[Rfam]
RNA sequence: UGUUAAAUUGACUCUAGUAGGGAGUCCGUUCCGCGCGACUCCCUAAUCGAGUCAGGUUGACUUCUUU
Numbered sequence: 001u002g003u004u005a006a007a008u009u010g011a012c013u014c015u016a017g018u019a020g021g022g023a024g025u026c027c028g029u030u031c032c033g034c035g036c037g038a039c040u041c042c043c044u045a046a047u048c049g050a051g052u053c054a055g056g057u058u059g060a061c062u063u064c065u066u067u
Base pairs, nucleotide, nucleotide: 008055009054010053011052012051013050014049018045019044020043021042022041023040024039025038026037
RNA: mir-929 microRNA precursor family